[Rfam]
RNA sequence: GGGACAGGGGGGUCUUCGUCACGCGGCGGAGCCUGUCCCGAGGUUGCGCGAACGCGUGGCCAAGUGGUUGUCGCUCGGGGGUGAACGCCG
Numbered sequence: 001g002g003g004a005c006a007g008g009g010g011g012g013u014c015u016u017c018g019u020c021a022c023g024c025g026g027c028g029g030a031g032c033c034u035g036u037c038c039c040g041a042g043g044u045u046g047c048g049c050g051a052a053c054g055c056g057u058g059g060c061c062a063a064g065u066g067g068u069u070g071u072c073g074c075u076c077g078g079g080g081g082u083g084a085a086c087g088c089c090g
Stems, first nucleotide, its partner, number of pairs: 001039008014031007042061008
RNA: che1 RNA